[Rfam]
RNA sequence: GAGUCCAACAUGCAUGCGAGUAUCUGGGAAUUUUAAACCCAUGUGCGUAAUGAAAGUGAAAAAUCAUUAGUAUGUAACCUACUCUUCGAGUGGGGCAACAUCAACCGACUUUAGAUAGCGCUGCUUGAAAAGGUUGAGUAAGAGCAUGUAUGCUGGGACCCGAAAGAUGGUGAACUAUGCCUGAAUAGGGUGAAGUCAGAGGAAACUCUGAUGGAAGCUCGUAGAGAUUCUGACGUGCAAAUCGAUCUCAGAAUUUGGGUAUAGGGGCGAAAGACUAAUCGAACCAUCUAGUAGCUGGUU
Numbered sequence: 001g002a003g004u005c006c007a008a009c010a011u012g013c014a015u016g017c018g019a020g021u022a023u024c025u026g027g028g029a030a031u032u033u034u035a036a037a038c039c040c041a042u043g044u045g046c047g048u049a050a051u052g053a054a055a056g057u058g059a060a061a062a063a064u065c066a067u068u069a070g071u072a073u074g075u076a077a078c079c080u081a082c083u084c085u086u087c088g089a090g091u092g093g094g095g096c097a098a099c100a101u102c103a104a105c106c107g108a109c110u111u112u113a114g115a116u117a118g119c120g121c122u123g124c125u126u127g128a129a130a131a132g133g134u135u136g137a138g139u140a141a142g143a144g145c146a147u148g149u150a151u152g153c154u155g156g157g158a159c160c161c162g163a164a165a166g167a168u169g170g171u172g173a174a175c176u177a178u179g180c181c182u183g184a185a186u187a188g189g190g191u192g193a194a195g196u197c198a199g200a201g202g203a204a205a206c207u208c209u210g211a212u213g214g215a216a217g218c219u220c221g222u223a224g225a226g227a228u229u230c231u232g233a234c235g236u237g238c239a240a241a242u243c244g245a246u247c248u249c250a251g252a253a254u255u256u257g258g259g260u261a262u263a264g265g266g267g268c269g270a271a272a273g274a275c276u277a278a279u280c281g282a283a284c285c286a287u288c289u290a291g292u293a294g295c296u297g298g299u300u
Base pairs, nucleotide, nucleotide: 005156006155007154009152010151011150012149013148014147015146016145017144020046021045022044025041026040027039028038050057051056072101073100074099075098078094079093080092104139105138106136107135108134109132110131111130115126159298160297162295166288167287168286169285170284171283175264176263177262178261179260180259181258182257183256184255185254186252188220189219190218191217195212196211197210198209199208200207201206224249225248226247227246229245230244232243233242266276267275
RNA: Eukaryotic large subunit ribosomal RNA, nucleotides 798 to 1097
Organism: Smittium mucronatum